[Rfam]
RNA sequence: GCAUCACGCGGAGAUGGCAUUCCUCCUCUAACCGCCGUCGUUUUAUAUGCGGCUGAUGAUGCCUACAGGUCC
Numbered sequence: 001g002c003a004u005c006a007c008g009c010g011g012a013g014a015u016g017g018c019a020u021u022c023c024u025c026c027u028c029u030a031a032c033c034g035c036c037g038u039c040g041u042u043u044u045a046u047a048u049g050c051g052g053c054u055g056a057u058g059a060u061g062c063c064u065a066c067a068g069g070u071c072c
Stems, first nucleotide, its partner, number of pairs: 010026004016063006034053004
A member of the RNA family "Fluoride riboswitch aptamer (crcB RNA motif)" from Cupriavidus sp. USMAA2-4, 72 nucleotides long. The match comes from Rfam's covariance-model search (55 bits). Gene Ontology terms of the family: response to fluoride and positive regulation of gene expression.